[Rfam]
RNA sequence: AUAAAAACGAAUGAAAACAUCCAUAUAAUCCUGAUAAUAAGGUUCGGGAGUUUCUACUAGGAAACCUUAAAUUUCCUUUCUAUGGGUGAAUCUUGAAACUUU
Numbered sequence: 001a002u003a004a005a006a007a008c009g010a011a012u013g014a015a016a017a018c019a020u021c022c023a024u025a026u027a028a029u030c031c032u033g034a035u036a037a038u039a040a041g042g043u044u045c046g047g048g049a050g051u052u053u054c055u056a057c058u059a060g061g062a063a064a065c066c067u068u069a070a071a072u073u074u075c076c077u078u079u080c081u082a083u084g085g086g087u088g089a090a091u092c093u094u095g096a097a098a099c100u101u102u
Stems, first nucleotide, its partner, number of pairs: 018088008029049006059077006
This 102-nucleotide sequence from Clostridium magnum belongs to the Rfam family "Purine riboswitch aptamer". A search with the family's covariance model found it, with a score of 83 bits. Taxonomically the source falls in Clostridium magnum (Bacteria, Eubacteriales, Clostridiaceae, Clostridium).